[Rfam]
RNA sequence: CCGGACACUCUAGCAGGGCCGCACCGCAAAGCAGCCCCGCCCCACUACCCC
Numbered sequence: 001c002c003g004g005a006c007a008c009u010c011u012a013g014c015a016g017g018g019c020c021g022c023a024c025c026g027c028a029a030a031g032c033a034g035c036c037c038c039g040c041c042c043c044a045c046u047a048c049c050c051c
Base pairs, nucleotide, nucleotide: 002026003025004024013040016037017036018035021032022031
RNA: RAGATH-5 RNA